RNA sequence: GGGGCUGAACGGUUUCGACUGCGUGCGUUGAUUCAGGGGAAGCGUGUCGGUGCAGGCAGAUGACCACCGUAAGCGUCGCUGCAACCUUAUAAGCGCCGAUUCUCAUCAGCGCGACUACGCUCUCGCUGCCUAAGCAACGAAGCGUGUCUGUCAGCCCGGGUCCGCCCUCGACCCGGUCCCUGGCAUCAGCUAGAGGGCUCUACCGUCCGCCCCGGUCGCGGGGGCGGACGGGACAUCCAACAGCGACUGGGAUCGUCAUCCUGGCUUGUUCGCGUGACCAGGAGAUCCGAGCAGAGGCCUAGCGAACUGCACACGGAGAAGCCCUGGAGACACGGCGGAGGACCCGGGUUCGAUUCCCGGCAGCUCCACCU
Numbered sequence: 001g002g003g004g005c006u007g008a009a010c011g012g013u014u015u016c017g018a019c020u021g022c023g024u025g026c027g028u029u030g031a032u033u034c035a036g037g038g039g040a041a042g043c044g045u046g047u048c049g050g051u052g053c054a055g056g057c058a059g060a061u062g063a064c065c066a067c068c069g070u071a072a073g074c075g076u077c078g079c080u081g082c083a084a085c086c087u088u089a090u091a092a093g094c095g096c097c098g099a100u101u102c103u104c105a106u107c108a109g110c111g112c113g114a115c116u117a118c119g120c121u122c123u124c125g126c127u128g129c130c131u132a133a134g135c136a137a138c139g140a141a142g143c144g145u146g147u148c149u150g151u152c153a154g155c156c157c158g159g160g161u162c163c164g165c166c167c168u169c170g171a172c173c174c175g176g177u178c179c180c181u182g183g184c185a186u187c188a189g190c191u192a193g194a195g196g197g198c199u200c201u202a203c204c205g206u207c208c209g210c211c212c213c214g215g216u217c218g219c220g221g222g223g224g225c226g227g228a229c230g231g232g233a234c235a236u237c238c239a240a241c242a243g244c245g246a247c248u249g250g251g252a253u254c255g256u257c258a259u260c261c262u263g264g265c266u267u268g269u270u271c272g273c274g275u276g277a278c279c280a281g282g283a284g285a286u287c288c289g290a291g292c293a294g295a296g297g298c299c300u301a302g303c304g305a306a307c308u309g310c311a312c313a314c315g316g317a318g319a320a321g322c323c324c325u326g327g328a329g330a331c332a333c334g335g336c337g338g339a340g341g342a343c344c345c346g347g348g349u350u351c352g353a354u355u356c357c358c359g360g361c362a363g364c365u366c367c368a369c370c371u
Stems, first nucleotide, its partner, number of pairs: 001367007019340002022337003028332001032328007043315005048069005056082004121142001123140003127136003149185006156176007164198006203231009214248006250288005256283002259280001264279001266277001268307004276299001344360005
This 371-nucleotide RNA sequence from Nocardia stercoris belongs to the Rfam family "transfer-messenger RNA". For this family Rfam cites "Phylogenetic analysis of tmRNA secondary structure" (Williams and Bartel, RNA, 1996). NCBI's taxonomy places the organism under Bacteria, Bacillati, Actinomycetes, Nocardiaceae, Nocardia. By type it is a non-coding RNA gene.